[Rfam]
RNA: Bacterial large signal recognition particle RNA
Organism: Clostridiales bacterium KLE1615
RNA sequence: AUGCGCAGCCGGGGCGGUAGCGGUGCCUUGUACCUUCAAUCCGCUAUAGUAGGGGUCAUAUCCCGGCUGAGGGUGUUUCACUUGUGGAGCUGCCCUUUGUAAGUGGCGUUGAAGUUUGGGUCUUACGCAACAAGACUCUGUGAACCAUGUCAGGUCGGGAACGAAGCAGCAUUAAGCAGAAUCUCUUGUGUGCCGUGAGGGUGCCUGAGCCGAGCAGGCUGCAGAGGUAACGUCUGGGGGUGGCAUUCGAAGCCGGGAUGCGCAA
Dot-bracket structure: .(((((.(((((((((.(...).))))))...(((.(...........).)))))).....(((((((..(((((..((((((.(((...((..((((((..((.((......((((((((((((((((.(((((.(((((.....((((....(((....)))....))))...)))))...)))))))...))))))...))))))))...))..)).)))))).))....))).)))))))))))..)))))))..))))).